[Rfam]
RNA sequence: AGUAAUAGAAUAAGGUACUCAAGGGUGGUUGGCUCACUCCCGUUCGAAAGGGGGUGGUGCCUGUGUCAGUAUUCGAAGCAUUAAUGAUUGCAAUUACAUUCGCAGCAUUAGUCGUGUCAAUAUUGUCAUUCAACCAUAAAAAAUAACCCAUCCUUGAGUUAGCGCUCAGAUGGGUUAUCUCACUCAUUUAGCCAAUCCCCUUGAAGGGAACCUGCUGUUACAUUGAUCGUUUGGUGUUGUAGCACCAGGCG
Numbered sequence: 001a002g003u004a005a006u007a008g009a010a011u012a013a014g015g016u017a018c019u020c021a022a023g024g025g026u027g028g029u030u031g032g033c034u035c036a037c038u039c040c041c042g043u044u045c046g047a048a049a050g051g052g053g054g055u056g057g058u059g060c061c062u063g064u065g066u067c068a069g070u071a072u073u074c075g076a077a078g079c080a081u082u083a084a085u086g087a088u089u090g091c092a093a094u095u096a097c098a099u100u101c102g103c104a105g106c107a108u109u110a111g112u113c114g115u116g117u118c119a120a121u122a123u124u125g126u127c128a129u130u131c132a133a134c135c136a137u138a139a140a141a142a143a144u145a146a147c148c149c150a151u152c153c154u155u156g157a158g159u160u161a162g163c164g165c166u167c168a169g170a171u172g173g174g175u176u177a178u179c180u181c182a183c184u185c186a187u188u189u190a191g192c193c194a195a196u197c198c199c200c201u202u203g204a205a206g207g208g209a210a211c212c213u214g215c216u217g218u219u220a221c222a223u224u225g226a227u228c229g230u231u232u233g234g235u236g237u238u239g240u241a242g243c244a245c246c247a248g249g250c251g
Stems, first nucleotide, its partner, number of pairs: 001219002004216001006214001008212001011195001014192001016190001018158008027148004034057008065127001067125005078091003102118001168180003196209004228251010
Dot-bracket structure: ((.(.(.(..(..(.(.((((((((.((((...((((((((........)))))))).......(.(((((......(((........)))..........(...............)..))))).).................))))..)))))))).........(((.......))).........).)..)((((......))))..).).).))........((((((((((....))))))))))
Annotation
BsrG: a 251-nucleotide sequence from Paenisporosarcina cavernae. The family's RNA type in Rfam is small RNA. bsrE, bsrG and bsrH pair through intermolecular interactions with antisense sRNAs. The literature on the family includes a 2013 paper in Nucleic Acids Res by Jahn and Brantl, "One antitoxin--two functions: SR4 controls toxin mRNA decay and translation". The match comes from Rfam's covariance-model search (104 bits). The organism belongs to Paenisporosarcina, within Bacteria.